[Rfam]
RNA sequence: UUGAGGAGAAACCGUUAUGUGCGAAGCACAUAAUUAAAAAUCGGUUUCGACGCCCUGCCGCCGAGCGAAGGCGAGGGGGCGUUACACAUA
Numbered sequence: 001u002u003g004a005g006g007a008g009a010a011a012c013c014g015u016u017a018u019g020u021g022c023g024a025a026g027c028a029c030a031u032a033a034u035u036a037a038a039a040a041u042c043g044g045u046u047u048c049g050a051c052g053c054c055c056u057g058c059c060g061c062c063g064a065g066c067g068a069a070g071g072c073g074a075g076g077g078g079g080c081g082u083u084a085c086a087c088a089u090a
Base pairs, nucleotide, nucleotide: 008048009047010046011045012044013043016032017031018030019029020028021027057080058079059078061076062075065072066071

A member of the RNA family "GA-cis RNA", 90 nucleotides long.